[Rfam]
RNA sequence: AUUUCCCCAGAUUUUCCGUCGUAGUGUCCGUUUGGACAGGGAACCUUGACAGAGUGAUGGUUUCAACCAUCCACGCAGUAAAGCUACACCUGGGUGCGUUUGAUGUCAUGU
Numbered sequence: 001a002u003u004u005c006c007c008c009a010g011a012u013u014u015u016c017c018g019u020c021g022u023a024g025u026g027u028c029c030g031u032u033u034g035g036a037c038a039g040g041g042a043a044c045c046u047u048g049a050c051a052g053a054g055u056g057a058u059g060g061u062u063u064c065a066a067c068c069a070u071c072c073a074c075g076c077a078g079u080a081a082a083g084c085u086a087c088a089c090c091u092g093g094g095u096g097c098g099u100u101u102g103a104u105g106u107c108a109u110g111u
Stems, first nucleotide, its partner, number of pairs: 006094005018089002021087004025038005045110001047108005056071006073099005
Dot-bracket structure: .....[[[[[.......[[.[[[[(((((....)))))......(.(((((....((((((....)))))).(((((......]]]]]]]]]]])))))....))))).).
A member of the RNA family "EGFOA RNA" from Brevibacillus agri, 111 nucleotides long. Rfam's curators put it in the seed alignment. NCBI's taxonomy places the organism under Bacteria, Bacillati, Bacillota, Caryophanales, Brevibacillus agri.